SAM riboswitch aptamer (S box leader): a 102-nucleotide RNA from Brochothrix thermosphacta.
RNA sequence: UACUUAUCCAGAAAGGUGGAGGGACUUGGCCCGCUGAUACCUUAGCAACCGGAACGAUUGUUCACGGUGCUACAUCCAACAGUCAUUACUGACAGAUAAGUG
Numbered sequence: 001u002a003c004u005u006a007u008c009c010a011g012a013a014a015g016g017u018g019g020a021g022g023g024a025c026u027u028g029g030c031c032c033g034c035u036g037a038u039a040c041c042u043u044a045g046c047a048a049c050c051g052g053a054a055c056g057a058u059u060g061u062u063c064a065c066g067g068u069g070c071u072a073c074a075u076c077c078a079a080c081a082g083u084c085a086u087u088a089c090u091g092a093c094a095g096a097u098a099a100g101u102g
Stems, first nucleotide, its partner, number of pairs: 001102008013043005021032003026079004044071004049067002052063004075094001080091004
Background: A search with the family's covariance model found it, with a score of 82 bits.